A member of the RNA family "Small nucleolar RNA Z266" from Elaeis guineensis, 89 nucleotides long. It is annotated as a C/D-box small nucleolar RNA. The base pairs follow the family's consensus structure, which was predicted with PFOLD.

RNA sequence: CUGUGGCAGGAGUGAUGAAUCAAUUAGAUGUGUGAAGUUCUCUUGUGAGCUCAAAUUAUGAGGCUUAUUGAUAUUCUGACUUGCCAUUU
Numbered sequence: 001c002u003g004u005g006g007c008a009g010g011a012g013u014g015a016u017g018a019a020u021c022a023a024u025u026a027g028a029u030g031u032g033u034g035a036a037g038u039u040c041u042c043u044u045g046u047g048a049g050c051u052c053a054a055a056u057u058a059u060g061a062g063g064c065u066u067a068u069u070g071a072u073a074u075u076c077u078g079a080c081u082u083g084c085c086a087u088u089u
Base pairs, nucleotide, nucleotide: 003087004086005085006084007083008082009081010080